[Rfam]
Notes:
This 79-nucleotide RNA sequence from Corymbia citriodora belongs to the Rfam family "Small nucleolar RNA R160". snoR160 is a C/D box small nucleolar RNA, which acts as a methylation guide for 25S ribosomal RNA in plants. snoR160 has been alternatively named snoZ270 in rice. Pairs were carried over by alignment from the consensus structure.
RNA sequence: AGCAAAAUGAUGAGUUUCGUGUAUCUGAAAAUGGUGUGGAUUGCCAUAUCAUAUAGGUCUUCAAAGUUCUCUGAUUGCU
Numbered sequence: 001a002g003c004a005a006a007a008u009g010a011u012g013a014g015u016u017u018c019g020u021g022u023a024u025c026u027g028a029a030a031a032u033g034g035u036g037u038g039g040a041u042u043g044c045c046a047u048a049u050c051a052u053a054u055a056g057g058u059c060u061u062c063a064a065a066g067u068u069c070u071c072u073g074a075u076u077g078c079u
Base pairs, nucleotide, nucleotide: 001079002078003077004076005075